The record is a 91-nucleotide RNA from Clostridium thermopalmarium, which matches "pan motif" in Rfam. It scores 44 bits against the family's covariance model. It is annotated as a cis-regulatory element.
[Rfam]
RNA sequence: UAGUUGGUAUUCUUGUGAAACCAAACUUCAUAAUUUAUUAUAAUCAAUUUAAUUUAACAACUUAUAUCCAAUUUUGGAAUAAGAAUGGAGG
Numbered sequence: 001u002a003g004u005u006g007g008u009a010u011u012c013u014u015g016u017g018a019a020a021c022c023a024a025a026c027u028u029c030a031u032a033a034u035u036u037a038u039u040a041u042a043a044u045c046a047a048u049u050u051a052a053u054u055u056a057a058c059a060a061c062u063u064a065u066a067u068c069c070a071a072u073u074u075u076g077g078a079a080u081a082a083g084a085a086u087g088g089a090g091g
Stems, first nucleotide, its partner, number of pairs: 002027002004024005010019002058087002061083005067078003